[Rfam]
RNA sequence: GUUUGCAGUGACGACAAGAAAAUUUCGUCAAGCUCAACAGACUUGAUUACGGGGAUAGGAACAUCGUUUCGCAUCCCAUAUGAUAGUUAACCCGCUGAUCCGAGCAAAC
Numbered sequence: 001g002u003u004u005g006c007a008g009u010g011a012c013g014a015c016a017a018g019a020a021a022a023u024u025u026c027g028u029c030a031a032g033c034u035c036a037a038c039a040g041a042c043u044u045g046a047u048u049a050c051g052g053g054g055a056u057a058g059g060a061a062c063a064u065c066g067u068u069u070c071g072c073a074u075c076c077c078a079u080a081u082g083a084u085a086g087u088u089a090a091c092c093c094g095c096u097g098a099u100c101c102g103a104g105c106a107a108a109c
Stems, first nucleotide, its partner, number of pairs: 001109006